[Rfam]
RNA sequence: UUUCCGAAAGGGUUGCCGAAAAGAAAUUUCCGGUACACAAAGCUAACGGGUCUGUUAUUAGGUAACAGACAGCCGGGCUGCCGAA
Dot-bracket structure: ...........((...((.(((....))).))....))..((((..((((((((((.......)))))))..)))))))......
The record is an 85-nucleotide RNA sequence from Geobacter sp. DSM 9736, which matches "c-di-GMP-I riboswitch aptamer" in Rfam. The organism belongs to Geobacter, within Bacteria. The family is grouped with related families in Rfam's "c-di-GMP_I riboswitch clan".